[Rfam]
RNA: Small nucleolar RNA SNORA53
RNA sequence: UACACGUUCCUUAGAUCCACCUCUGGGGAAUUCUUCACCUUUUGGUGCUGCUGCUCUUCUGAGUGUGUCAGCUCCAGGGUGGAGGCUCCCAGCAGCUUUUCUGGCUGUACAGUUGGAGGUGCUUGAGUCAUUGGCGUGUGAGAGCAGUCUACCUGCCCCUUCAGCCCAGCUGCUGCCCUGGCUCCCAUAGUGGACCUUCCCCAGGGUAGACAAGCUGGAGGGCGGACAUG
Numbered sequence: 001u002a003c004a005c006g007u008u009c010c011u012u013a014g015a016u017c018c019a020c021c022u023c024u025g026g027g028g029a030a031u032u033c034u035u036c037a038c039c040u041u042u043u044g045g046u047g048c049u050g051c052u053g054c055u056c057u058u059c060u061g062a063g064u065g066u067g068u069c070a071g072c073u074c075c076a077g078g079g080u081g082g083a084g085g086c087u088c089c090c091a092g093c094a095g096c097u098u099u100u101c102u103g104g105c106u107g108u109a110c111a112g113u114u115g116g117a118g119g120u121g122c123u124u125g126a127g128u129c130a131u132u133g134g135c136g137u138g139u140g141a142g143a144g145c146a147g148u149c150u151a152c153c154u155g156c157c158c159c160u161u162c163a164g165c166c167c168a169g170c171u172g173c174u175g176c177c178c179u180g181g182c183u184c185c186c187a188u189a190g191u192g193g194a195c196c197u198u199c200c201c202c203a204g205g206g207u208a209g210a211c212a213a214g215c216u217g218g219a220g221g222g223c224g225g226a227c228a229u230g
Stems, first nucleotide, its partner, number of pairs: 002139007010127005018121008026090004033085004039079004044075001047072004051065001053064004092108006153225005160219001162217004173209009183194003